[Rfam]
RNA sequence: GUCUUGUUAGGAGAUGGCAUUCCUCCUAGUUUAACCGUCCUUUUGUGGACUGAUGAUGCCUACGUAAAC
Numbered sequence: 001g002u003c004u005u006g007u008u009a010g011g012a013g014a015u016g017g018c019a020u021u022c023c024u025c026c027u028a029g030u031u032u033a034a035c036c037g038u039c040c041u042u043u044u045g046u047g048g049a050c051u052g053a054u055g056a057u058g059c060c061u062a063c064g065u066a067a068a069c
Stems, first nucleotide, its partner, number of pairs: 010026004016060006037050004
RNA: Fluoride riboswitch aptamer (crcB RNA motif)
Organism: Providencia alcalifaciens